[Rfam]
Rfam assigns this 460-nucleotide RNA from Rhinopomastus cyanomelas to the family "Vertebrate telomerase RNA".
The family's consensus secondary structure is taken from published work.
A reference for the family is Chen et al. (2000), "Secondary structure of vertebrate telomerase RNA", Cell.
Gene Ontology terms of the family: telomerase catalytic core complex, telomere maintenance via telomerase and telomerase activity.
From the family's description: Telomerase is a ribonucleoprotein reverse transcriptase that synthesises telomeric DNA. Telomerase RNAs differ greatly in sequence and structure between vertebrates, ciliates and yeasts, but they share a 5' pseudoknot structure close to the template sequence. Vertebrate telomerase RNAs have a 3' H/ACA snoRNA-like domain.
It is annotated as a non-coding RNA gene.
The organism belongs to Rhinopomastus, within Eukaryota.

RNA sequence: UGGCGCGGCGGGUGGGGAGGCCUUGGCCGGUCUAACCCUAAUGGCCACGGCUGCUUUCCCGGCCACUGUCCUCUGUUUUACUCGCUGACUUUCAGGGGACGAGGGGAGCGGCCCGGGGGGUGGUGGGGGAAAGGAAAAGGACGGGGGUCUGCCAUAAAAAACGUCAGCGAGGGGUCUCCUCACCCCGGCCCGCCCUGGGGUCUCCUGUAUCCUCACCGCCCCCCACCCUUGGCCGAAGCUCCCGCCGCCGUCCUUUCCUGAGGCCGCGGUCGGCCGGUUCCUGCCACUGCCGCCGCGAAGAGCUCGUCUCUGUCAGCCUUGGCGGCGGCCGGGAGCAGCGGUGGGCACGGGAGCGGGGUGCGUAGGACCCCAGCAGAGCAAAACUGGGAGCGACGCCGCGCGGUUCCGCCGCGAUUCCCUCAGCCAUGGGGCGCGCGCGGCCGGCGCCGCUCCGACACGC
Dot-bracket structure: ...((.(.(((((((((.(((((................................((((.......(((((((((........[[[[[[[[[)))))))))...))))..................................................]]].]]]]]]...))))).)))))))).).).))..(((((((........................(((.((.((...(((((((..(((((.............(((((.((((.(((....)))...))))))))).((((.....))))..........)))))...)))))))......)).)).)))...............)))))))..............(((((.((((...........(((((..((((........))))....)))))..)))).)))))........